The family of this 189-nucleotide RNA from Octodon degus is "U2 spliceosomal RNA". A reference for the family is Zwieb (1997), "The uRNA database", Nucleic Acids Res. Taxonomically the source falls in Octodon (Eukaryota, Theria, Eutheria, Hystricomorpha).
[Rfam]
RNA sequence: AUCACUUCUCGGCCUUUGGGCUAAGGUCGUGUAUGAUAUGUGUUCUUAUCAGCUUAAUAUCUGAUCUGCCCUCUAUCUGAGGACAUAUAUUAAAUGGGUUUUGGGAUCUGGGAGAUGGAAUAGGAGCUUGCUGCAUCUGCUCCGCAUCAACCUGGUGCUGCAGUACCUACAGAAACAGUGGUACCACCU
Numbered sequence: 001a002u003c004a005c006u007u008c009u010c011g012g013c014c015u016u017u018g019g020g021c022u023a024a025g026g027u028c029g030u031g032u033a034u035g036a037u038a039u040g041u042g043u044u045c046u047u048a049u050c051a052g053c054u055u056a057a058u059a060u061c062u063g064a065u066c067u068g069c070c071c072u073c074u075a076u077c078u079g080a081g082g083a084c085a086u087a088u089a090u091u092a093a094a095u096g097g098g099u100u101u102u103g104g105g106a107u108c109u110g111g112g113a114g115a116u117g118g119a120a121u122a123g124g125a126g127c128u129u130g131c132u133g134c135a136u137c138u139g140c141u142c143c144g145c146a147u148c149a150a151c152c153u154g155g156u157g158c159u160g161c162a163g164u165a166c167c168u169a170c171a172g173a174a175a176c177a178g179u180g181g182u183a184c185c186a187c188c189u
Stems, first nucleotide, its partner, number of pairs: 007026003011022004048065005068084001070082004111143004117137002123134001125132002146182004152172003
Dot-bracket structure: ......(((.((((....)))).))).....................(((((........)))))..(.((((.....)))).)..........................((((..((....(.((....)).).))..))))..((((..(((...............)))......)))).......
The family's RNA type in Rfam is spliceosomal small nuclear RNA. Its Rfam clan is "U2 clan". Rfam 15.1 lists 71,512 matches to the family in 2,642 species. From the family's description: U2 is a small nuclear RNA (snRNA) component of the spliceosome (involved in pre-mRNA splicing). Complementary binding between U2 snRNA (in an area lying towards the 5' end but 3' to hairpin I) and the branchpoint sequence (BPS) of the intron results the bulging out of an unpaired adenosine, on the BPS, which initiates a nucleophilic attack at the intronic 5' splice site, thus starting the first of two transesterification reactions that mediate splicing.